[Rfam]
RNA: Small nucleolar RNA SNORD18
RNA sequence: AGCAGUGAUGAAAUUCCACUCCGUUGGUCCGUGUUUCUGAACAACAUGAUUUUCCUGGAUGUUCUGAUGCU
Numbered sequence: 001a002g003c004a005g006u007g008a009u010g011a012a013a014u015u016c017c018a019c020u021c022c023g024u025u026g027g028u029c030c031g032u033g034u035u036u037c038u039g040a041a042c043a044a045c046a047u048g049a050u051u052u053u054c055c056u057g058g059a060u061g062u063u064c065u066g067a068u069g070c071u
Base pairs, nucleotide, nucleotide: 001071002070003069004068